A member of the RNA family "mir-160 microRNA precursor family" from Trifolium subterraneum, 87 nucleotides long. Taxonomically the source falls in Trifolium (Eukaryota, Pentapetalae, rosids, Fabaceae).
RNA sequence: GUUUGCCUGGCUCCCUGAAUGCCAUCUGAGACGCUUGUCAAAAGAAUUGACAACCUUUUUAUUUGGCAUCAAGGGAGCCAUGCAGGC
Numbered sequence: 001g002u003u004u005g006c007c008u009g010g011c012u013c014c015c016u017g018a019a020u021g022c023c024a025u026c027u028g029a030g031a032c033g034c035u036u037g038u039c040a041a042a043a044g045a046a047u048u049g050a051c052a053a054c055c056u057u058u059u060u061a062u063u064u065g066g067c068a069u070c071a072a073g074g075g076a077g078c079c080a081u082g083c084a085g086g087c
Stems, first nucleotide, its partner, number of pairs: 001087006008080007016072001019069006027061003